[Rfam]
RNA sequence: AGCACUGCAUGGUAUCUGCAGCCAGCCGUGACUCUGGUUGGAGUGUUCAUUGGUCAGUGCAACCUGGCAUAUGACAUUGUUGGUAUACAUUUUUUUUUGUUACCUUUAUUUUUCUAGGCAAGUCAGUU
Dot-bracket structure: .((((((......(((.(((..((((((......))))).)..))).....)))))))))..(((((.(...((((.....................))))..........).)))))..........